[Rfam]
RNA sequence: CACGUCAGAGCGCUUUGCUAACGUGGCAACAAAUCGCACUUACGUGGAUGCGAUUUGUUGCCACGUCAGCUAAGCGCUCUGACGUGG
Numbered sequence: 001c002a003c004g005u006c007a008g009a010g011c012g013c014u015u016u017g018c019u020a021a022c023g024u025g026g027c028a029a030c031a032a033a034u035c036g037c038a039c040u041u042a043c044g045u046g047g048a049u050g051c052g053a054u055u056u057g058u059u060g061c062c063a064c065g066u067c068a069g070c071u072a073a074g075c076g077c078u079c080u081g082a083c084g085u086g087g
Base pairs, nucleotide, nucleotide: 001086002085003084004083005082006081007080008079009078010077011076012075013074014073015072017070018069019068021066023064024063025062026061027060028059029058030057031056032055033054034053035052036051037050038049040047041046
RNA: MIR7486 microRNA precursor family
Organism: Gossypium schwendimanii